[Rfam]
RNA sequence: AGUGAGUGAGUAGUUCGCUGAGUUACUAAAGGGUGUGUUUAAUACAUACCAGCAAGCUUGCCUUGUGGGUUCCUUUAGUCAGGGGAAAGCUCACUUUUUU
Numbered sequence: 001a002g003u004g005a006g007u008g009a010g011u012a013g014u015u016c017g018c019u020g021a022g023u024u025a026c027u028a029a030a031g032g033g034u035g036u037g038u039u040u041a042a043u044a045c046a047u048a049c050c051a052g053c054a055a056g057c058u059u060g061c062c063u064u065g066u067g068g069g070u071u072c073c074u075u076u077a078g079u080c081a082g083g084g085g086a087a088a089g090c091u092c093a094c095u096u097u098u099u100u
Stems, first nucleotide, its partner, number of pairs: 001095007016083001018082004026078006032050007053065004
Source information
This 100-nucleotide RNA sequence belongs to the Rfam family "DUF3800-VII RNA". It is one of the family's seed sequences.